[Rfam]
RNA sequence: AACCCAUCCGAACCCACUCACGUUCGGCAGGAGCGGGGGACCCAGGUAAGUCGCCGAUCCGGAAACGGACCGGCUCGGGGUGAAGUCGCAGUCACCUGCGACCGGGCAUCUCCAGCCCGAACCCGACAGCUCACCUCGUAGGCGACGGAGAGGAAUUUC
Number, nucleotide and partner (000 for none) at each position: 001a000002a000003c000004c031005c030006a000007u000008c000009c000010g000011a000012a000013c000014c000015c000016a000017c000018u000019c000020a000021c000022g000023u000024u000025c000026g000027g000028c000029a000030g005031g004032a000033g139034c138035g137036g136037g135038g134039g000040a000041c000042c000043c077044a000045g000046g000047u000048a000049a000050g000051u000052c000053g000054c000055c000056g000057a000058u000059c000060c000061g000062g000063a000064a000065a000066c000067g000068g000069a000070c000071c000072g000073g000074c000075u000076c000077g043078g124079g123080g122081u000082g000083a000084a000085g000086u101087c100088g099089c098090a000091g000092u000093c000094a000095c000096c000097u000098g089099c088100g087101a086102c000103c000104g118105g117106g116107c115108a000109u000110c000111u000112c000113c000114a000115g107116c106117c105118c104119g000120a000121a000122c080123c079124c078125g000126a000127c000128a000129g000130c000131u000132c000133a000134c038135c037136u036137c035138g034139u033140a000141g000142g000143c000144g000145a000146c000147g000148g000149a000150g000151a000152g000153g000154a000155a000156u000157u000158u000159c000
RNA: c-di-AMP riboswitch aptamer (ydaO/yuaA leader)
Organism: Streptomyces sp. 150FB